raiA RNA: a 250-nucleotide RNA sequence. It is annotated as a riboswitch.
RNA sequence: CUCACCCAGGUCUGUGGUUGCGGGCGCAAGCCCUAGUCCAUGGCAGACGAGGCCAAAGGGACCCACGUAAGCCUGCGCGUGCGCGCGGAGGCGAGCAUGGCUCGUCCUAGAGGUAAGCCGUACCGCCCGUCAGACUGAAGAGGCAUACCGCCUCGCGGGCGAGAGGGUCGGUAGUGACGGGUGCCGCGGCAUCCCGAGCGAGCGCCCCGGUACGCGAGUGUGGGGGCAAAGACCAGGUCAGCUGGGUGAG
Numbered sequence: 001c002u003c004a005c006c007c008a009g010g011u012c013u014g015u016g017g018u019u020g021c022g023g024g025c026g027c028a029a030g031c032c033c034u035a036g037u038c039c040a041u042g043g044c045a046g047a048c049g050a051g052g053c054c055a056a057a058g059g060g061a062c063c064c065a066c067g068u069a070a071g072c073c074u075g076c077g078c079g080u081g082c083g084c085g086c087g088g089a090g091g092c093g094a095g096c097a098u099g100g101c102u103c104g105u106c107c108u109a110g111a112g113g114u115a116a117g118c119c120g121u122a123c124c125g126c127c128c129g130u131c132a133g134a135c136u137g138a139a140g141a142g143g144c145a146u147a148c149c150g151c152c153u154c155g156c157g158g159g160c161g162a163g164a165g166g167g168u169c170g171g172u173a174g175u176g177a178c179g180g181g182u183g184c185c186g187c188g189g190c191a192u193c194c195c196g197a198g199c200g201a202g203c204g205c206c207c208c209g210g211u212a213c214g215c216g217a218g219u220g221u222g223g224g225g226g227c228a229a230a231g232a233c234c235a236g237g238u239c240a241g242c243u244g245g246g247u248g249a250g
Base pairs, nucleotide, nucleotide: 001250002249003248004247005246006245007244008243009242012241013240014239015235016234017233018232019231040221041220042219043053046106047105048104049103050102051101062100063099072090074088098228119214120213121212122211123210124161125160126159127158128157129156130155165207166206167205168204174199175198179195180194181193